[Rfam]
RNA sequence: GGUCAUGAGUGUCAGCGCACAGCCCCGGCUUGCUGACCGGCAACCCUCCAACCGCGGUGGGGUGCUCCGGGUGACGACCAGGCCGCGUCCGAGGUGGACGUGUGCAAGCGCGGACU
Numbered sequence: 001g002g003u004c005a006u007g008a009g010u011g012u013c014a015g016c017g018c019a020c021a022g023c024c025c026c027g028g029c030u031u032g033c034u035g036a037c038c039g040g041c042a043a044c045c046c047u048c049c050a051a052c053c054g055c056g057g058u059g060g061g062g063u064g065c066u067c068c069g070g071g072u073g074a075c076g077a078c079c080a081g082g083c084c085g086c087g088u089c090c091g092a093g094g095u096g097g098a099c100g101u102g103u104g105c106a107a108g109c110g111c112g113g114a115c116u
Stems, first nucleotide, its partner, number of pairs: 001079004009038001011037006021030002039066003044062003048057002082105002084102008